Overview
A member of the RNA family "ASpks TB sRNA" from Actinomadura macrotermitis, 75 nucleotides long. The source organism's lineage runs through Bacteria, Bacillati, Streptosporangiales, Thermomonosporaceae and Actinomadura.

RNA sequence: CUUGAUCGAGCCCAGCCACAGUGGGGAGUCCUCGGGACGGUCCUGGCCGUAGGUCGCCAGCAGCGCCUGCGCCUC
Numbered sequence: 001c002u003u004g005a006u007c008g009a010g011c012c013c014a015g016c017c018a019c020a021g022u023g024g025g026g027a028g029u030c031c032u033c034g035g036g037a038c039g040g041u042c043c044u045g046g047c048c049g050u051a052g053g054u055c056g057c058c059a060g061c062a063g064c065g066c067c068u069g070c071g072c073c074u075c
Base pairs, nucleotide, nucleotide: 016024017023031071033069038065039064043060044059045058047056049054